[Rfam]
RNA sequence: GGCUGGUUGGGUUCCUGGCAGAGUGAUUUGAUUUAAUAAUGUAAAAUCACAUUGCCAGGGAUUACCAACCUGUC
Numbered sequence: 001g002g003c004u005g006g007u008u009g010g011g012u013u014c015c016u017g018g019c020a021g022a023g024u025g026a027u028u029u030g031a032u033u034u035a036a037u038a039a040u041g042u043a044a045a046a047u048c049a050c051a052u053u054g055c056c057a058g059g060g061a062u063u064a065c066c067a068a069c070c071u072g073u074c
Base pairs, nucleotide, nucleotide: 001074002073005070006069008067009066010065011062012061013060014059015058016057017056018055019054020053021052023050024049025048026047027046028045029044